This 154-nucleotide RNA from Amborella trichopoda belongs to the Rfam family "MIR8565 microRNA precursor family". Rfam links the family to the GO terms RISC complex and miRNA-mediated post-transcriptional gene silencing. The source organism's lineage runs through Eukaryota, Streptophyta, Euphyllophyta, Amborellaceae and Amborella.
RNA sequence: CCCACACCCAUGUGUGUAGGACCCCAAAGGAUCACUAUUAAAUUUAGCACAGAUCUCUAGAAAAGUCAAGUCUCAUGCCAAUGUGAUGACUUUUCUAGAGAUUUGUGUCAAAUUUAGUGGUGAUCCUUUGGGGUCCUACACACAUGGGUGUGGG
Numbered sequence: 001c002c003c004a005c006a007c008c009c010a011u012g013u014g015u016g017u018a019g020g021a022c023c024c025c026a027a028a029g030g031a032u033c034a035c036u037a038u039u040a041a042a043u044u045u046a047g048c049a050c051a052g053a054u055c056u057c058u059a060g061a062a063a064a065g066u067c068a069a070g071u072c073u074c075a076u077g078c079c080a081a082u083g084u085g086a087u088g089a090c091u092u093u094u095c096u097a098g099a100g101a102u103u104u105g106u107g108u109c110a111a112a113u114u115u116a117g118u119g120g121u122g123a124u125c126c127u128u129u130g131g132g133g134u135c136c137u138a139c140a141c142a143c144a145u146g147g148g149u150g151u152g153g154g
Stems, first nucleotide, its partner, number of pairs: 002153012015140014030125003034121012047108022069082001071080001